[Rfam]
Annotation
Shown here is a 97-nucleotide RNA from Propithecus coquereli, a member of the family "Y RNA". Rfam classes the family as a non-coding RNA gene. The source organism's lineage runs through Eukaryota, Bilateria, Boreoeutheria, Indriidae and Propithecus.

RNA sequence: GGCUGGUCUGAUGGUAGUGGGUUAACAGAACUUAUUAACAUUAGUGUCACUAAAGUUGGUCUACAACUCCCCCGCUGCUAAAUCUGAUUGGCUUAAA
Numbered sequence: 001g002g003c004u005g006g007u008c009u010g011a012u013g014g015u016a017g018u019g020g021g022u023u024a025a026c027a028g029a030a031c032u033u034a035u036u037a038a039c040a041u042u043a044g045u046g047u048c049a050c051u052a053a054a055g056u057u058g059g060u061c062u063a064c065a066a067c068u069c070c071c072c073c074g075c076u077g078c079u080a081a082a083u084c085u086g087a088u089u090g091g092c093u094u095a096a097a
Base pairs, nucleotide, nucleotide: 001093002092003091004090005089006088007087008086010085015080016076017075018074019073020072021071034060035059037057038056